Shown here is an 86-nucleotide RNA from Vagococcus silagei, a member of the family "SAM-III riboswitch aptamer (SMK box)". A reference for the family is Fuchs et al. (2007), "S-adenosylmethionine directly inhibits binding of 30S ribosomal subunits to the SMK box translational riboswitch RNA", Proc Natl Acad Sci U S A.
[Rfam]
RNA sequence: CUUUGGUGCAAGAUUCCCGAUAGGAUUUACAUCACGUAAAGAUGCCUUGUAACCGAAAAAUGAAACCAGGGGGAAUACAGGAAAUG
Numbered sequence: 001c002u003u004u005g006g007u008g009c010a011a012g013a014u015u016c017c018c019g020a021u022a023g024g025a026u027u028u029a030c031a032u033c034a035c036g037u038a039a040a041g042a043u044g045c046c047u048u049g050u051a052a053c054c055g056a057a058a059a060a061u062g063a064a065a066c067c068a069g070g071g072g073g074a075a076u077a078c079a080g081g082a083a084a085u086g
Base pairs, nucleotide, nucleotide: 014075015074016073017072018071022047023046024045026040027039028038029037030036053070054069